[Rfam]
RNA sequence: GGGCUGUCUCCGCCGAGUCCGGCCCCGCCGCGAGGCGGCUGGAGCCGGGGACCCACGCGCACCACCGGGGUGAAUCGGGCCGCGCGGCGACCCAGCCGCCGCACGGCCCGUAGGGCAGCCUUCCGACGCCCGAACCCGACAGCUAACCCGGUAGGCGGUCCACGGAAGGAGU
Numbered sequence: 001g002g003g004c005u006g007u008c009u010c011c012g013c014c015g016a017g018u019c020c021g022g023c024c025c026c027g028c029c030g031c032g033a034g035g036c037g038g039c040u041g042g043a044g045c046c047g048g049g050g051a052c053c054c055a056c057g058c059g060c061a062c063c064a065c066c067g068g069g070g071u072g073a074a075u076c077g078g079g080c081c082g083c084g085c086g087g088c089g090a091c092c093c094a095g096c097c098g099c100c101g102c103a104c105g106g107c108c109c110g111u112a113g114g115g116c117a118g119c120c121u122u123c124c125g126a127c128g129c130c131c132g133a134a135c136c137c138g139a140c141a142g143c144u145a146a147c148c149c150g151g152u153a154g155g156c157g158g159u160c161c162a163c164g165g166a167a168g169g170a171g172u
Stems, first nucleotide, its partner, number of pairs: 011157004018043007044152006054067001068137003076110007113131004

Background:
This 172-nucleotide RNA sequence from Streptomyces sparsogenes belongs to the Rfam family "c-di-AMP riboswitch aptamer (ydaO/yuaA leader)". Taxonomically the source falls in Streptomyces sparsogenes (Bacteria, Actinomycetota, Streptomycetaceae, Streptomyces). The match comes from Rfam's covariance-model search (50 bits). From the family's description: This family represents a conserved RNA structure found upstream of the ydaO and yuaA genes in Bacillus subtilis and related genes in other bacteria.